[Rfam]
RNA sequence: GAGGAAGGGAGUGGGGUGGAGGCAGGGGCAGGAGUUGGAGUGAAUAUGGCCCCACAACCCACCCCAGGACUCCAUUCACCCUAGCCCCUGCCCUUGCCUCUGCCCUACUCCUUCCCUC
Numbered sequence: 001g002a003g004g005a006a007g008g009g010a011g012u013g014g015g016g017u018g019g020a021g022g023c024a025g026g027g028g029c030a031g032g033a034g035u036u037g038g039a040g041u042g043a044a045u046a047u048g049g050c051c052c053c054a055c056a057a058c059c060c061a062c063c064c065c066a067g068g069a070c071u072c073c074a075u076u077c078a079c080c081c082u083a084g085c086c087c088c089u090g091c092c093c094u095u096g097c098c099u100c101u102g103c104c105c106u107a108c109u110c111c112u113u114c115c116c117u118c
Stems, first nucleotide, its partner, number of pairs: 001118004006113004014105004019100005028091005034086001036084001037080002
RNA: mir-25 microRNA precursor family
Organism: Alligator sinensis